[Rfam]
RNA sequence: CAAAUGAACUGUUAGGUGAGACUCCUACGUAAAUAUACGCUGACGCCCAGCAACAUCCAGAGAUGCCGAUGGGUUAAACAGGAACUGUCGAAUUAAGGCUUUGCCCAGUCAGCUAGUUGAACAGACUUCACGUUACGUAGUGUUAAAACUGAACGACGAGUAGAAAUC
Numbered sequence: 001c002a003a004a005u006g007a008a009c010u011g012u013u014a015g016g017u018g019a020g021a022c023u024c025c026u027a028c029g030u031a032a033a034u035a036u037a038c039g040c041u042g043a044c045g046c047c048c049a050g051c052a053a054c055a056u057c058c059a060g061a062g063a064u065g066c067c068g069a070u071g072g073g074u075u076a077a078a079c080a081g082g083a084a085c086u087g088u089c090g091a092a093u094u095a096a097g098g099c100u101u102u103g104c105c106c107a108g109u110c111a112g113c114u115a116g117u118u119g120a121a122c123a124g125a126c127u128u129c130a131c132g133u134u135a136c137g138u139a140g141u142g143u144u145a146a147a148a149c150u151g152a153a154c155g156a157c158g159a160g161u162a163g164a165a166a167u168c
Base pairs, nucleotide, nucleotide: 005164008161009160010159011154012153013096015150016149017148020144021143022142025140026139027138028137029136030135031134032133039113040112041111042110043109045074046073047072048071049070054065055064056063057062081105082104084102087099088098089097115127116126117125
Annotation: The record is a 168-nucleotide sequence from Lactobacillus helveticus, which matches "M-box riboswitch aptamer (ykoK leader)" in Rfam. The source organism's lineage runs through Bacteria, Bacillota, Lactobacillaceae, Lactobacillus and Lactobacillus helveticus. Rfam's curators put it in the seed alignment. About the family: M-box riboswitch, also know as ykoK leader is described as a metaloregulatory RNA that sense divalent metals and function as a genetic control element of genes related to divalent metal transport in bacteria. It was first reported upstream of the B.subtilis ykoK gene and genes with related functions in other bacteria.